U5 spliceosomal RNA: a 92-nucleotide RNA from Medicago truncatula. The match comes from Rfam's covariance-model search (60 bits). Lineage of the source: Eukaryota > Viridiplantae > Magnoliopsida > Trifolieae > Medicago. From the family's description: U5 RNA is a component of both types of known spliceosome.
[Rfam]
RNA sequence: GAGCUGUGUGAUGAUGACAUAGCGAAUUAUUCUUUCGCCUUUUACUAAAGAAUACCAUGUCAACGUUACAUUUAACGGCACUAAUGCUAAUA
Numbered sequence: 001g002a003g004c005u006g007u008g009u010g011a012u013g014a015u016g017a018c019a020u021a022g023c024g025a026a027u028u029a030u031u032c033u034u035u036c037g038c039c040u041u042u043u044a045c046u047a048a049a050g051a052a053u054a055c056c057a058u059g060u061c062a063a064c065g066u067u068a069c070a071u072u073u074a075a076c077g078g079c080a081c082u083a084a085u086g087c088u089a090a091u092a
Base pairs, nucleotide, nucleotide: 003079004078005077006076009068010067011066012065013064015062016061017060018059019058028054029053030052031051032050033049034048035047